RNA sequence: UUGUUUGUAGCUGCAACGUAGUGCUUCGCGCACGGGCUGUACAGUCGU
Numbered sequence: 001u002u003g004u005u006u007g008u009a010g011c012u013g014c015a016a017c018g019u020a021g022u023g024c025u026u027c028g029c030g031c032a033c034g035g036g037c038u039g040u041a042c043a044g045u046c047g048u
Stems, first nucleotide, its partner, number of pairs: 008039005021033004
Dot-bracket structure: .......(((((........((((.....)))).))))).........
RNA: ssnA RNA